[Rfam]
RNA: permuted transfer-messenger RNA
RNA sequence: AAAUGUACAAUGUGUAUGAAAUAAUCUGUCUGGACAGGGGUUCGACUCCCCUCACGUCCACUGGGCAUCCUCUACGCUAUUGUGUAGAUUCCAUUUGAACAACCUAGGCAUGUUGUAAAACUGCCUACACGGGCGUGUUUGGUUUUGACAGACAGAGGAGAUAAAUACAUUAAGCACUAUACUAUAAAUUAAACGACAAUGUAAAUAACAUUGUAGACUAUACUAACGUAGCGUAA
Number, nucleotide and partner (000 for none) at each position: 001a000002a171003a170004u169005g168006u000007a000008c000009a000010a000011u000012g000013u000014g000015u163016a162017u161018g000019a000020a000021a000022u000023a000024a000025u000026c155027u154028g153029u000030c151031u150032g149033g000034a000035c000036a052037g051038g050039g049040g048041u000042u000043c000044g000045a000046c000047u000048c040049c039050c038051c037052u036053c137054a136055c135056g134057u133058c132059c131060a000061c000062u000063g000064g000065g000066c000067a000068u000069c000070c000071u000072c000073u000074a000075c000076g000077c000078u000079a000080u000081u000082g000083u000084g000085u000086a000087g000088a000089u000090u000091c000092c000093a000094u000095u000096u000097g000098a000099a000100c000101a000102a000103c000104c000105u000106a000107g000108g000109c000110a000111u000112g000113u000114u000115g000116u000117a000118a000119a000120a000121c000122u000123g000124c000125c000126u000127a000128c000129a000130c000131g059132g058133g057134c056135g055136u054137g053138u000139u000140u000141g000142g000143u000144u000145u000146u000147g000148a000149c032150a031151g030152a000153c028154a027155g026156a000157g000158g000159a000160g000161a017162u016163a015164a000165a000166u000167a000168c005169a004170u003171u002172a000173a000174g000175c000176a000177c000178u000179a000180u000181a000182c000183u000184a000185u000186a000187a000188a000189u000190u000191a000192a000193a000194c000195g000196a000197c000198a000199a000200u000201g000202u000203a000204a000205a000206u000207a000208a000209c000210a000211u000212u000213g000214u000215a000216g000217a000218c000219u000220a000221u000222a000223c000224u000225a000226a000227c000228g000229u000230a000231g000232c000233g000234u000235a000236a000